About this RNA:
The record is a 74-nucleotide RNA from Roseinatronobacter bogoriensis, which matches "Singlet oxygen resistance RNA X" in Rfam. By type it is a small RNA. The match comes from Rfam's covariance-model search (64 bits). The literature on the family includes a 2016 paper in RNA Biol by Peng et al., "Regulation of a polyamine transporter by the conserved 3' UTR-derived sRNA SorX confers resistance to singlet oxygen and organic hydroperoxides in Rhodobacter sphaeroides". The source organism's lineage runs through Bacteria, Pseudomonadati, Pseudomonadota, Alphaproteobacteria and Roseinatronobacter bogoriensis.
[Rfam]
RNA sequence: CUCCCCAUUGUGCCGGGGUUAGGCACAAACUCCUCCCUGUUGGACUGCACCGGGCCUUUGGCCCGGUUUUUUUU
Numbered sequence: 001c002u003c004c005c006c007a008u009u010g011u012g013c014c015g016g017g018g019u020u021a022g023g024c025a026c027a028a029a030c031u032c033c034u035c036c037c038u039g040u041u042g043g044a045c046u047g048c049a050c051c052g053g054g055c056c057u058u059u060g061g062c063c064c065g066g067u068u069u070u071u072u073u074u
Stems, first nucleotide, its partner, number of pairs: 008028007049067007